RNA sequence: UCCCAUGAGCAAGAUGAUUCUCGUACUUAUGGGGCGCACACGCGUGACGAUCUGAGGAUCGUCCGGCGAAAGCCGCGUGUGCGCUGAGGGCCCCUUCGAGGGCCCUUUUUUAUUGCUCGGA
Numbered sequence: 001u002c003c004c005a006u007g008a009g010c011a012a013g014a015u016g017a018u019u020c021u022c023g024u025a026c027u028u029a030u031g032g033g034g035c036g037c038a039c040a041c042g043c044g045u046g047a048c049g050a051u052c053u054g055a056g057g058a059u060c061g062u063c064c065g066g067c068g069a070a071a072g073c074c075g076c077g078u079g080u081g082c083g084c085u086g087a088g089g090g091c092c093c094c095u096u097c098g099a100g101g102g103c104c105c106u107u108u109u110u111u112a113u114u115g116c117u118c119g120g121a
Base pairs, nucleotide, nucleotide: 007028009026029117032114033085034084035083036082037081038080039079040078041077042076046063047062048061049060050059066073067072087106088105089104090103091102092101093100

The family of this 121-nucleotide RNA sequence from Aureimonas sp. Leaf460 is "Rhizobiales sRNA Atu_C8".
The match comes from Rfam's covariance-model search (69 bits).
Taxonomically the source falls in Aureimonas (Bacteria, Pseudomonadota, Alphaproteobacteria, Hyphomicrobiales).
The family's RNA type in Rfam is small RNA.